[Rfam]
Notes: Shown here is a 76-nucleotide RNA from Hominimerdicola alba, a member of the family "Fluoride riboswitch aptamer (crcB RNA motif)".
RNA sequence: AUAAUUUAUGGGAAUGAUGAUCUCCCGAGGUUUUUACCUGAACCGCUUAUUCCAAGCUGAUGACGUCUGUUUUACG
Numbered sequence: 001a002u003a004a005u006u007u008a009u010g011g012g013a014a015u016g017a018u019g020a021u022c023u024c025c026c027g028a029g030g031u032u033u034u035u036a037c038c039u040g041a042a043c044c045g046c047u048u049a050u051u052c053c054a055a056g057c058u059g060a061u062g063a064c065g066u067c068u069g070u071u072u073u074a075c076g
Stems, first nucleotide, its partner, number of pairs: 010026004016067004021062001045057004
Dot-bracket structure: .........((((..[[[[.[.))))..................((((.....))))....].]]]].........
Background:
Rfam links the family to the GO terms positive regulation of gene expression and response to fluoride. The literature on the family includes a 2012 paper in Science by Baker et al., "Widespread genetic switches and toxicity resistance proteins for fluoride". A search with the family's covariance model found it, with a score of 41 bits.